Shown here is a 117-nucleotide RNA sequence from Puniceibacterium antarcticum, a member of the family "ALIL pseudoknot". The base pairs follow the family's consensus structure, which is taken from published work. On this family, see Mazauric et al., J Biol Chem 2008: "Apical loop-internal loop RNA pseudoknots: a new type of stimulator of -1 translational frameshifting in bacteria". Taxonomically the source falls in Puniceibacterium (Bacteria, Pseudomonadota, Rhodobacterales, Paracoccaceae). A search with the family's covariance model found it, with a score of 98 bits.
Nucleotides: 117
Stems, first nucleotide, its partner, number of pairs: 016032005079116004089112002093108001095106003
Number, partner (000 for none) and nucleotide at each position: 001000c002000g003000c004000a005000u006000a007000u008000u009000u010000u011000g012000c013000g014000a015000u016032g017031g018030c019029g020028g021000a022000g023000c024000u025000c026000g027000a028020c029019c030018g031017c032016c033000g034000g035000u036000c037000g038000a039000a040000g041000u042000g043000a044000u045000g046000c047000u048000g049000u050000c051000g052000u053000u054000c055000a056000u057000c058000u059000a060000u061000g062000a063000c064000c065000a066000u067000c068000g069000a070000g071000a072000u073000g074000c075000a076000c077000a078000c079116g080115g081114g082113g083000u084000c085000g086000a087000g088000c089112c090111g091000a092000c093108c094000u095106g096105c097104a098000a099000c100000a101000u102000g103000g104097u105096g106095c107000c108093g109000a110000u111090c112089g113082c114081c115080c116079c117000u